[Rfam]
RNA sequence: UUUUGUGGUAGAGGUGCGGUCUAUCAAUAGUACCUGACGGAGUCUGGCGAACUGUGAAGCCAGGGAAAGGGAUAGCCGCCGAAGCUGCAGUCUUGCCAGGGAUUGCCGCUGGUCUUGUGUUUAAGAAAUACCGGACUGUCGCUUGAUGGAUAUCAAGGGGAGCGCUACUAUCUUG
Number, nucleotide and partner (000 for none) at each position: 001u000002u000003u000004u000005g000006u170007g169008g168009u167010a166011g165012a000013g000014g000015u000016g079017c078018g077019g076020u000021c075022u074023a073024u072025c071026a000027a000028u000029a000030g000031u000032a000033c064034c063035u062036g061037a000038c059039g000040g000041a000042g000043u000044c000045u000046g000047g000048c000049g000050a000051a000052c000053u000054g000055u000056g000057a000058a000059g038060c000061c036062a035063g034064g033065g000066a000067a000068a000069g000070g000071g025072a024073u023074a022075g021076c019077c018078g017079c016080c000081g000082a000083a110084g109085c108086u000087g106088c105089a104090g103091u102092c101093u100094u099095g000096c000097c000098a000099g094100g093101g092102a091103u090104u089105g088106c087107c000108g085109c084110u083111g137112g136113u135114c134115u133116u000117g131118u130119g129120u128121u127122u000123a000124a000125g000126a000127a121128a120129u119130a118131c117132c000133g115134g114135a113136c112137u111138g000139u160140c159141g000142c157143u156144u155145g154146a000147u000148g000149g000150a000151u000152a000153u000154c145155a144156a143157g142158g000159g140160g139161a000162g000163c000164g000165c011166u010167a009168c008169u007170a006171u000172c000173u000174u000175g000

The family of this 175-nucleotide sequence from Propionispora vibrioides is "Lysine riboswitch aptamer".
Gene Ontology term of the family: lysine biosynthetic process.
The literature on the family includes a 2003 paper in Nucleic Acids Res by Rodionov et al., "Regulation of lysine biosynthesis and transport genes in bacteria: yet another RNA riboswitch?".
Taxonomically the source falls in Propionispora (Bacteria, Bacillati, Bacillota, Negativicutes).
Rfam's curators write: Riboswitches are metabolite binding domains within certain messenger RNAs that serve as precision sensors for their corresponding targets.
Pairs were carried over by alignment from the consensus structure, which is taken from published work.